[Rfam]
RNA sequence: AUAUGCCUGGCUCCCUGUAUGCCACAAGCAUCAAAAACCAAUCUGCAUUUUGGUUUCCUUCUUGCAGGUGGCGUGCAUGGAGCCAGGCAUGC
Numbered sequence: 001a002u003a004u005g006c007c008u009g010g011c012u013c014c015c016u017g018u019a020u021g022c023c024a025c026a027a028g029c030a031u032c033a034a035a036a037a038c039c040a041a042u043c044u045g046c047a048u049u050u051u052g053g054u055u056u057c058c059u060u061c062u063u064g065c066a067g068g069u070g071g072c073g074u075g076c077a078u079g080g081a082g083c084c085a086g087g088c089a090u091g092c
Stems, first nucleotide, its partner, number of pairs: 002091005008085007016077009028065002

Shown here is a 92-nucleotide RNA from Rhamnella rubrinervis, a member of the family "mir-160 microRNA precursor family". The family has 7 seed sequences and 1,502 matches in Rfam 15.1. The source organism's lineage runs through Eukaryota, Streptophyta, Streptophytina, Rhamneae and Rhamnella. A search with the family's covariance model found it, with a score of 68 bits.